The record is a 79-nucleotide RNA sequence from Raineyella antarctica, which matches "Actino-pnp RNA" in Rfam.

RNA sequence: CUCGGUCCUCGGUAGUGGUCUUCGGGAAGCCGUCCCCUCGAGGGACGUGCAGGCCCGCGGACCUCGAUCGAAGACCGGU
Number, nucleotide and partner (000 for none) at each position: 001c000002u078003c077004g076005g075006u074007c073008c000009u071010c070011g069012g068013u067014a000015g000016u000017g063018g062019u061020c060021u059022u000023c057024g056025g055026g054027a000028a000029g000030c000031c000032g000033u000034c000035c000036c000037c000038u000039c000040g000041a000042g000043g000044g000045a000046c000047g000048u000049g000050c000051a000052g000053g000054c026055c025056c024057g023058c000059g021060g020061a019062c018063c017064u000065c000066g000067a013068u012069c011070g010071a009072a000073g007074a006075c005076c004077g003078g002079u000

The base pairs follow the family's consensus structure, which is taken from published work.
Rfam classes the family as a cis-regulatory element.